[Rfam]
RNA sequence: AAUAAUCUUCAGGGCAGGGUGUAAUUCCCUACUGGCGGUACAGCCCGCGAGCUAUUAUUUAGCAGAUUCGGUUAGACUCCGAAGCCAACAGUAUAGUCUGGAUAAAAGAAGAUAGUA
Numbered sequence: 001a002a003u004a005a006u007c008u009u010c011a012g013g014g015c016a017g018g019g020u021g022u023a024a025u026u027c028c029c030u031a032c033u034g035g036c037g038g039u040a041c042a043g044c045c046c047g048c049g050a051g052c053u054a055u056u057a058u059u060u061a062g063c064a065g066a067u068u069c070g071g072u073u074a075g076a077c078u079c080c081g082a083a084g085c086c087a088a089c090a091g092u093a094u095a096g097u098c099u100g101g102a103u104a105a106a107a108g109a110a111g112a113u114a115g116u117a
Stems, first nucleotide, its partner, number of pairs: 003115001005113006017029003031097002033087002035048004043085002051063003067083005089100003
Dot-bracket structure: ..(.((((((......(((.......))).[[((((((....[[))))..(((.......)))...(((((.......)))))]])).(((....]]))).......)))))).)..